[Rfam]
RNA sequence: UCCGGUCCUCGGUAGUGGCCCUCGGGACGGCGUACGCCGGGCCGCGGGCCUCGAUCGAAGACCGAC
Number, nucleotide and partner (000 for none) at each position: 001u000002c000003c064004g063005g062006u061007c060008c000009u058010c057011g056012g055013u054014a000015g000016u000017g050018g049019c048020c047021c046022u000023c044024g043025g042026g000027a000028c040029g000030g038031c000032g000033u000034a000035c000036g000037c000038c030039g000040g028041g000042c025043c024044g023045c000046g021047g020048g019049c018050c017051u000052c000053g000054a013055u012056c011057g010058a009059a000060g007061a006062c005063c004064g003065a000066c000

About this RNA: Shown here is a 66-nucleotide RNA from Aeromicrobium erythreum, a member of the family "Actino-pnp RNA". Taxonomically the source falls in Aeromicrobium (Bacteria, Actinomycetota, Propionibacteriales, Nocardioidaceae). The base pairs follow the family's consensus structure, which is taken from published work.